[Rfam]
RNA: miR-430 microRNA precursor family
RNA sequence: CAGACUACCCAAACACAAGCACUGACUUGAGUUAUGUAUGCGUAAGUGCUACUUGUUGGGGUAUUUUGC
Numbered sequence: 001c002a003g004a005c006u007a008c009c010c011a012a013a014c015a016c017a018a019g020c021a022c023u024g025a026c027u028u029g030a031g032u033u034a035u036g037u038a039u040g041c042g043u044a045a046g047u048g049c050u051a052c053u054u055g056u057u058g059g060g061g062u063a064u065u066u067u068g069c
Base pairs, nucleotide, nucleotide: 004065006063007062008061009060010059013056014055015054018050019049020048021047022046023045025043026042